[Rfam]
The family of this 75-nucleotide RNA from Caenorhabditis brenneri is "mir-236 microRNA precursor family". Pairs were carried over by alignment from the consensus structure, which was predicted with RNAalifold. Its Rfam clan is "mir-8 microRNA precursor clan". The source organism's lineage runs through Eukaryota, Opisthokonta, Eumetazoa, Rhabditidae and Caenorhabditis. The family has 8 seed sequences and 52 matches in Rfam 15.1.

RNA sequence: GUCCAGCGUCUUACCUGUUCAAUAUUUAGACUAACACAUCAAGAGAUCUAAUACUGUCAGGUAAUGACGCUGGGU
Numbered sequence: 001g002u003c004c005a006g007c008g009u010c011u012u013a014c015c016u017g018u019u020c021a022a023u024a025u026u027u028a029g030a031c032u033a034a035c036a037c038a039u040c041a042a043g044a045g046a047u048c049u050a051a052u053a054c055u056g057u058c059a060g061g062u063a064a065u066g067a068c069g070c071u072g073g074g075u
Stems, first nucleotide, its partner, number of pairs: 001075010011064007020056002023053004028049003